[Rfam]
RNA sequence: GUUGUGGGGGGAGCCCCCUCAGCCUGGAUUGCGAGAGAGCGUAGGCCAGGCCGAGGGACCCCACCGGUGCACG
Numbered sequence: 001g002u003u004g005u006g007g008g009g010g011g012a013g014c015c016c017c018c019u020c021a022g023c024c025u026g027g028a029u030u031g032c033g034a035g036a037g038a039g040c041g042u043a044g045g046c047c048a049g050g051c052c053g054a055g056g057g058a059c060c061c062c063a064c065c066g067g068u069g070c071a072c073g
Base pairs, nucleotide, nucleotide: 001070005066006065007064009062010061011060013059016057017056018055019054020053022051023050024049026047027046029044030043031042032041033040
Annotation
This 73-nucleotide RNA sequence from Myotis lucifugus belongs to the Rfam family "mir-9193 microRNA precursor family". The family has 2 seed sequences and 6,008 matches in Rfam 15.1. The organism belongs to Myotis, within Eukaryota. The match comes from Rfam's covariance-model search (56 bits).